[Rfam]
The family of this 52-nucleotide sequence from Hoeflea prorocentri is "ffh sRNA". NCBI's taxonomy places the organism under Bacteria, Pseudomonadota, Alphaproteobacteria, Rhizobiaceae, Hoeflea. On this family, see Meyer et al., BMC Genomics 2009: "Identification of candidate structured RNAs in the marine organism 'Candidatus Pelagibacter ubique'". It scores 59 bits against the family's covariance model.
RNA sequence: GAUCCCGGAAGCCAACACCCGGCAGCGCGAUGCGCCCCCGGGUGCCUUAGUG
Number, nucleotide and partner (000 for none) at each position: 001g000002a000003u000004c000005c000006c000007g000008g000009a000010a000011g000012c000013c000014a000015a000016c044017a043018c042019c041020c040021g039022g038023c000024a000025g035026c034027g033028c032029g000030a000031u000032g028033c027034g026035c025036c000037c000038c022039c021040g020041g019042g018043u017044g016045c000046c000047u000048u000049a000050g000051u000052g000